[Rfam]
A member of the RNA family "terC RNA" from Novosphingobium chloroacetimidivorans, 65 nucleotides long. The match comes from Rfam's covariance-model search (55 bits).
RNA sequence: CGUGCGGGCCGGGCCCCUCUGGCGCGGCGCUCCCUUGGAGCGUCACGUGAUGUCGGACCGCAUCG
Numbered sequence: 001c002g003u004g005c006g007g008g009c010c011g012g013g014c015c016c017c018u019c020u021g022g023c024g025c026g027g028c029g030c031u032c033c034c035u036u037g038g039a040g041c042g043u044c045a046c047g048u049g050a051u052g053u054c055g056g057a058c059c060g061c062a063u064c065g
Stems, first nucleotide, its partner, number of pairs: 006059002009056004022048003026044001028042005
Dot-bracket structure: .....((.((((.........(((.(.(((((.....))))).).)))....)))).))......

NCBI's taxonomy places the organism under Bacteria, Alphaproteobacteria, Sphingomonadales, Sphingomonadaceae, Novosphingobium.